About this RNA
The record is a 130-nucleotide sequence from Caenorhabditis brenneri, which matches "Caenorhabditis sRNA ceN56" in Rfam. The literature on the family includes a 2007 paper in BMC Mol Biol by Jia et al., "Systematic identification of non-coding RNA 2,2,7-trimethylguanosine cap structures in Caenorhabditis elegans". By type it is a small RNA. The base pairs follow the family's consensus structure, which was predicted with CMfinder. The source organism's lineage runs through Eukaryota, Opisthokonta, Protostomia, Rhabditina and Caenorhabditis.
RNA sequence: UUCCCACUGAUUACAAACUUCGCUGAUACCUGCCCACCCGAAAGUCUCGAGAUCGCCUGGAGUGGGGUCCGGAUUGAGGACAGGCUGACAACGGUGGGAACCAUGAUACAGAUUAUGAGAGAUGAGGGAU
Numbered sequence: 001u002u003c004c005c006a007c008u009g010a011u012u013a014c015a016a017a018c019u020u021c022g023c024u025g026a027u028a029c030c031u032g033c034c035c036a037c038c039c040g041a042a043a044g045u046c047u048c049g050a051g052a053u054c055g056c057c058u059g060g061a062g063u064g065g066g067g068u069c070c071g072g073a074u075u076g077a078g079g080a081c082a083g084g085c086u087g088a089c090a091a092c093g094g095u096g097g098g099a100a101c102c103a104u105g106a107u108a109c110a111g112a113u114u115a116u117g118a119g120a121g122a123u124g125a126g127g128g129a130u
Stems, first nucleotide, its partner, number of pairs: 002129004033098006043086004047079002051075003059070003102117006